[Rfam]
RNA: rpsB sRNA
Organism: Aurantimonas coralicida
RNA sequence: CACACACGGAACUCGGGUUUCGACGUUCGGGCUUGUCCCGACGCCGCGAUCCACCGGUGGCGGCAUUCGGCCGCUUCUUUUCCGUGGAGGCUCAACCGGUAAAGGAAAAAA
Numbered sequence: 001c002a003c004a005c006a007c008g009g010a011a012c013u014c015g016g017g018u019u020u021c022g023a024c025g026u027u028c029g030g031g032c033u034u035g036u037c038c039c040g041a042c043g044c045c046g047c048g049a050u051c052c053a054c055c056g057g058u059g060g061c062g063g064c065a066u067u068c069g070g071c072c073g074c075u076u077c078u079u080u081u082c083c084g085u086g087g088a089g090g091c092u093c094a095a096c097c098g099g100u101a102a103a104g105g106a107a108a109a110a111a
Base pairs, nucleotide, nucleotide: 001089003087005086006085007084008083009082010081015052016051028040029039031038059075060074061073062072063071064070